A member of the RNA family "pemK RNA" from Streptococcus pluranimalium, 63 nucleotides long. A search with the family's covariance model found it, with a score of 46 bits. The source organism's lineage runs through Bacteria, Bacillati, Bacilli, Lactobacillales and Streptococcus.
RNA sequence: ACAAUGAUACUUCUGAACGUUCAGGCUGCCAACGUAAAAGGACAGCGGGUGAGAUGCCCAUGA
Numbered sequence: 001a002c003a004a005u006g007a008u009a010c011u012u013c014u015g016a017a018c019g020u021u022c023a024g025g026c027u028g029c030c031a032a033c034g035u036a037a038a039a040g041g042a043c044a045g046c047g048g049g050u051g052a053g054a055u056g057c058c059c060a061u062g063a
Stems, first nucleotide, its partner, number of pairs: 012060001013024004025046003047059003